[Rfam]
RNA sequence: GGGUGCCCGGCUUCGAGUCGACGGCAGGUCGUGCGCUGGUCGGGCCGCCAGUG
Dot-bracket structure: ....((((((.......)))..)))........(((((((......)))))))

A member of the RNA family "nhaA-I RNA" from a Sphingomonadales bacterium, 53 nucleotides long.
Pairs were carried over by alignment from the consensus structure, which is taken from published work.
It is annotated as a riboswitch.
A search with the family's covariance model found it, with a score of 44 bits.